[Rfam]
RNA sequence: GAACCGACCUUGGGCCAGAUCUCUUACCGCCCGGAUCACCUGACUCACCUUCCCCGGAGUCAGGCGACACCGGAGCGGUGGGGGAUCUGACCACAGGUCGUUUAGCG
Numbered sequence: 001g002a003a004c005c006g007a008c009c010u011u012g013g014g015c016c017a018g019a020u021c022u023c024u025u026a027c028c029g030c031c032c033g034g035a036u037c038a039c040c041u042g043a044c045u046c047a048c049c050u051u052c053c054c055c056g057g058a059g060u061c062a063g064g065c066g067a068c069a070c071c072g073g074a075g076c077g078g079u080g081g082g083g084g085a086u087c088u089g090a091c092c093a094c095a096g097g098u099c100g101u102u103u104a105g106c107g
Stems, first nucleotide, its partner, number of pairs: 011093003015089001018087002021084010031073004036067002039064008
Dot-bracket structure: ..........(((.(..((.((((((((((((((.((.((((((((..........)))))))).))..)))).)))))))))).)).).)))..............
Overview:
Shown here is a 107-nucleotide RNA sequence from Zhihengliuella flava, a member of the family "mraW RNA". The base pairs follow the family's consensus structure, which is taken from published work.